Small nucleolar RNA U6-53/MBII-28: a 104-nucleotide RNA sequence from Theropithecus gelada.
The pairing is the family consensus, mapped onto this sequence.
It is annotated as a C/D-box small nucleolar RNA.
Lineage of the source: Eukaryota > Deuterostomia > Cercopithecoidea > Cercopithecidae > Theropithecus.
[Rfam]
RNA sequence: CCCCUGUGAUGAAUUGCCAUGCUAAUACGGAGACACCAGGUAGGGAGUUUUACCCUGCAUUGGGUGUUGUUGAAAUAAACUCUUUCUCAUAAAUGCUGAGGGGC
Numbered sequence: 001c002c003c004c005u006g007u008g009a010u011g012a013a014u015u016g017c018c019a020u021g022c023u024a025a026u027a028c029g030g031a032g033a034c035a036c037c038a039g040g041u042a043g044g045g046a047g048u049u050u051u052a053c054c055c056u057g058c059a060u061u062g063g064g065u066g067u068u069g070u071u072g073a074a075a076u077a078a079a080c081u082c083u084u085u086c087u088c089a090u091a092a093a094u095g096c097u098g099a100g101g102g103g104c
Stems, first nucleotide, its partner, number of pairs: 001103004041057005
Dot-bracket structure: ((((....................................(((((.......)))))..........................................)))).